[Rfam]
A member of the RNA family "U7 small nuclear RNA" from Nomascus leucogenys, 61 nucleotides long. For this family Rfam cites "3' end processing of mouse histone pre-mRNA: evidence for additional base-pairing between U7 snRNA and pre-mRNA" (Spycher et al., Nucleic Acids Res, 1994). The source organism's lineage runs through Eukaryota, Opisthokonta, Craniata, Teleostomi and Nomascus. Animal histone pre-mRNAs are spliced by a different mechanism than nuclear pre-mRNAs and self-splicing introns.

RNA sequence: UAGUGUUACAGCUCUUUUAGAAUUUGUCUAGCAGGUUUUCGGUUUUUUAGCAGACACCCUC
Numbered sequence: 001u002a003g004u005g006u007u008a009c010a011g012c013u014c015u016u017u018u019a020g021a022a023u024u025u026g027u028c029u030a031g032c033a034g035g036u037u038u039u040c041g042g043u044u045u046u047u048u049a050g051c052a053g054a055c056a057c058c059c060u061c
Base pairs, nucleotide, nucleotide: 034058035057036056037054038053039052042051043050044049